[Rfam]
RNA sequence: UGCCAUAUUGCAGACAUGUGAGCACAGUCCUUGAAUGGAUGUGACUCAUUAAACAUUGUGGCUACAUGAAAAACACAGGUAUUGCUUCCAUCACUAUAGACACAGUUACAGUGAUGACAAUGAGACCUGUAACAAAC
Numbered sequence: 001u002g003c004c005a006u007a008u009u010g011c012a013g014a015c016a017u018g019u020g021a022g023c024a025c026a027g028u029c030c031u032u033g034a035a036u037g038g039a040u041g042u043g044a045c046u047c048a049u050u051a052a053a054c055a056u057u058g059u060g061g062c063u064a065c066a067u068g069a070a071a072a073a074c075a076c077a078g079g080u081a082u083u084g085c086u087u088c089c090a091u092c093a094c095u096a097u098a099g100a101c102a103c104a105g106u107u108a109c110a111g112u113g114a115u116g117a118c119a120a121u122g123a124g125a126c127c128u129g130u131a132a133c134a135a136a137c
Base pairs, nucleotide, nucleotide: 002062003061004060006058007057021046022045023043024042025041026040075130076129077128078127079126089116090115091114092113093112094111
Rfam assigns this 137-nucleotide RNA sequence from Microcaecilia unicolor to the family "Small nucleolar RNA SNORA1". About the family: ACA1 is a member of the H/ACA class of snoRNA that guide the sites of modification of uridines to pseudouridines. Rfam classes the family as an H/ACA-box small nucleolar RNA. A search with the family's covariance model found it, with a score of 77 bits. Gene Ontology terms of the family: nucleolus and RNA processing. The source organism's lineage runs through Eukaryota, Opisthokonta, Euteleostomi, Tetrapoda and Microcaecilia.